[Rfam]
RNA sequence: AACAACUAAAUAGGCAUUCAAAGACAGCAGGUGCAUUGUGCUUAAUACCCUGCCGAGGUGCAGAGAGAGUGUGUGAGUAGCGCAUAUCUUUGGGUCUCGGUUGUUAGCUGAGGCCCUUUUAGAUCUCUGA
Numbered sequence: 001a002a003c004a005a006c007u008a009a010a011u012a013g014g015c016a017u018u019c020a021a022a023g024a025c026a027g028c029a030g031g032u033g034c035a036u037u038g039u040g041c042u043u044a045a046u047a048c049c050c051u052g053c054c055g056a057g058g059u060g061c062a063g064a065g066a067g068a069g070u071g072u073g074u075g076a077g078u079a080g081c082g083c084a085u086a087u088c089u090u091u092g093g094g095u096c097u098c099g100g101u102u103g104u105u106a107g108c109u110g111a112g113g114c115c116c117u118u119u120u121a122g123a124u125c126u127c128u129g130a
Stems, first nucleotide, its partner, number of pairs: 027053005033041003093115010
This 130-nucleotide sequence from Leptolyngbya ectocarpi belongs to the Rfam family "Ribosomal protein L10 leader". A search with the family's covariance model found it, with a score of 53 bits. It is annotated as a cis-regulatory leader. Pairs were carried over by alignment from the consensus structure, which was predicted with CMfinder. From the family's description: This family is a putative r-protein leader autoregulatory structure found in B. subtilis and other low-GC Gram-positive bacteria.